[Rfam]
RNA sequence: GGCGCCACAAUUUCCAAUGCAUUUCCAAAGGCUGCCAUUCUAUUAUUAAAUCAGUUGAUGGCCAAACUUCCCUUGCAAGACGUAUGUUGUCCCUCGACUGUUUCUGGAUGGAUAUUCCAAAAAGCCCAUGAAUACCCAUUCCGAAACACUCGAUGCACAUCAUGGGCUUGAACGUUUUGCAAAGCAAGUUUGCACAUUUCUUAGGAAAUUCCCAAUGUAAAUGAUUUGGUUUGGUGCUGCGAGUACUCUGCAUAGCCAACAAACUGUACUGUUUCGAAAUGCAAAAUGUUUCUCUUCCUCAUAAUCGUGUGAAUCGAAACACAUGUAUUAUUAGUCGAAGAUCGAACAUUUAACAAAUAAUAAUCGUCAGAAUAUUUUUAAUAAUGCUGUGCCGAGAGUUUCAUGUGGCAAUUGUGGCAUUCUUCGCGUAAGAAUAGUCAACAGUUUGCCAAUCAAGACGUGAUAACUAUGCUCCCACCUCCAACUCAAUUCUCAUUUGUGGAAUUUACAAAUUGGCGUACCUUAGAAAUGCAUUGGAAAUAAUACGUA
Numbered sequence: 001g002g003c004g005c006c007a008c009a010a011u012u013u014c015c016a017a018u019g020c021a022u023u024u025c026c027a028a029a030g031g032c033u034g035c036c037a038u039u040c041u042a043u044u045a046u047u048a049a050a051u052c053a054g055u056u057g058a059u060g061g062c063c064a065a066a067c068u069u070c071c072c073u074u075g076c077a078a079g080a081c082g083u084a085u086g087u088u089g090u091c092c093c094u095c096g097a098c099u100g101u102u103u104c105u106g107g108a109u110g111g112a113u114a115u116u117c118c119a120a121a122a123a124g125c126c127c128a129u130g131a132a133u134a135c136c137c138a139u140u141c142c143g144a145a146a147c148a149c150u151c152g153a154u155g156c157a158c159a160u161c162a163u164g165g166g167c168u169u170g171a172a173c174g175u176u177u178u179g180c181a182a183a184g185c186a187a188g189u190u191u192g193c194a195c196a197u198u199u200c201u202u203a204g205g206a207a208a209u210u211c212c213c214a215a216u217g218u219a220a221a222u223g224a225u226u227u228g229g230u231u232u233g234g235u236g237c238u239g240c241g242a243g244u245a246c247u248c249u250g251c252a253u254a255g256c257c258a259a260c261a262a263a264c265u266g267u268a269c270u271g272u273u274u275c276g277a278a279a280u281g282c283a284a285a286a287u288g289u290u291u292c293u294c295u296u297c298c299u300c301a302u303a304a305u306c307g308u309g310u311g312a313a314u315c316g317a318a319a320c321a322c323a324u325g326u327a328u329u330a331u332u333a334g335u336c337g338a339a340g341a342u343c344g345a346a347c348a349u350u351u352a353a354c355a356a357a358u359a360a361u362a363a364u365c366g367u368c369a370g371a372a373u374a375u376u377u378u379u380a381a382u383a384a385u386g387c388u389g390u391g392c393c394g395a396g397a398g399u400u401u402c403a404u405g406u407g408g409c410a411a412u413u414g415u416g417g418c419a420u421u422c423u424u425c426g427c428g429u430a431a432g433a434a435u436a437g438u439c440a441a442c443a444g445u446u447u448g449c450c451a452a453u454c455a456a457g458a459c460g461u462g463a464u465a466a467c468u469a470u471g472c473u474c475c476c477a478c479c480u481c482c483a484a485c486u487c488a489a490u491u492c493u494c495a496u497u498u499g500u501g502g503a504a505u506u507u508a509c510a511a512a513u514u515g516g517c518g519u520a521c522c523u524u525a526g527a528a529a530u531g532c533a534u535u536g537g538a539a540a541u542a543a544u545a546c547g548u549a
Stems, first nucleotide, its partner, number of pairs: 002548003007544001010541004015536006024527002027524002030521001033518001066189004071184001074181002077178007089158002091155001094153004099148004104143001106141002111137001113134002116131002212502003217497001223491004228486002231484004236479001238477002242473004246396003251391006263382001265380002275366003284351008293341004298334002301331005399466002402462003411445005417438002419435005